RNA sequence: AAAGGAUGAGUCCAAAGGGAUAGCAUGAUCCAAACUCAGUAUUUUAAUUUCUUGAAAGAAAUAGAAACACAAAUGAAAUGGGAUCAAUGCGAUCCCUUUGGACGCCUCCUU
Numbered sequence: 001a002a003a004g005g006a007u008g009a010g011u012c013c014a015a016a017g018g019g020a021u022a023g024c025a026u027g028a029u030c031c032a033a034a035c036u037c038a039g040u041a042u043u044u045u046a047a048u049u050u051c052u053u054g055a056a057a058g059a060a061a062u063a064g065a066a067a068c069a070c071a072a073a074u075g076a077a078a079u080g081g082g083a084u085c086a087a088u089g090c091g092a093u094c095c096c097u098u099u100g101g102a103c104g105c106c107u108c109c110u111u
Stems, first nucleotide, its partner, number of pairs: 002111005008105001010103012023090003026086006
Shown here is a 111-nucleotide RNA from Nicotiana tabacum, a member of the family "mir-393 microRNA precursor family". It scores 72 bits against the family's covariance model. The base pairs follow the family's consensus structure.